[Rfam]
RNA: Qrr RNA
RNA sequence: UGACCCUUAUUAAGCCGAGGGUCACCUAGCCAACUGACGUUGUUAGUGAACCAAAAAUUUGUUCACAAAUGUAUACAGCCAAUCGCGCCAAUUUGCGAUUGGCUUUUUUUCU
Dot-bracket structure: ((((((............))))))................(((..((((((.........))))))......)))...((((((((........))))))))..........